[Rfam]
RNA sequence: GCGUUCAUAGCUCAGUUGGUUAGAGCACCACCUUGACAUGGUGGGGGUCGUUGGUUCGAGUCCAAUUGAACGCA
Numbered sequence: 001g002c003g004u005u006c007a008u009a010g011c012u013c014a015g016u017u018g019g020u021u022a023g024a025g026c027a028c029c030a031c032c033u034u035g036a037c038a039u040g041g042u043g044g045g046g047g048u049c050g051u052u053g054g055u056u057c058g059a060g061u062c063c064a065a066u067u068g069a070a071c072g073c074a
Stems, first nucleotide, its partner, number of pairs: 001073007010026004028044005050066005

The family of this 74-nucleotide sequence from Escherichia coli is "tRNA".
Rfam classes the family as a transfer RNA.
Lineage of the source: Bacteria > Pseudomonadota > Gammaproteobacteria > Enterobacterales > Escherichia.
The family's consensus secondary structure is taken from published work.